[Rfam]
RNA sequence: UUUCCGCUUCUUUCCUCCCUGAGCGGAAGCCUUAGACGAUGAGGCUAUUUGCCCCGAUUUAAUCCCCUUAAUCGGGGCUUUUUUU
Dot-bracket structure: ..((((((.............)))))).((((((.....))))))......((((((((..........))))))))........
Numbered sequence: 001u002u003u004c005c006g007c008u009u010c011u012u013u014c015c016u017c018c019c020u021g022a023g024c025g026g027a028a029g030c031c032u033u034a035g036a037c038g039a040u041g042a043g044g045c046u047a048u049u050u051g052c053c054c055c056g057a058u059u060u061a062a063u064c065c066c067c068u069u070a071a072u073c074g075g076g077g078c079u080u081u082u083u084u085u
Stems, first nucleotide, its partner, number of pairs: 003027006029045006052077008